Guanidine-II riboswitch aptamer (mini-ykkC): a 47-nucleotide sequence from Venatorbacter sp. C2-1. The base pairs follow the family's consensus structure, which is taken from published work. Taxonomically the source falls in Venatoribacter (Bacteria, Pseudomonadota, Gammaproteobacteria, Oceanospirillaceae).
[Rfam]
RNA sequence: GCAGCCGGACGACCGGCAGGCUUCAGUAUUUAUGCAGGACGACCUGC
Numbered sequence: 001g002c003a004g005c006c007g008g009a010c011g012a013c014c015g016g017c018a019g020g021c022u023u024c025a026g027u028a029u030u031u032a033u034g035c036a037g038g039a040c041g042a043c044c045u046g047c
Stems, first nucleotide, its partner, number of pairs: 002019001004017005034047005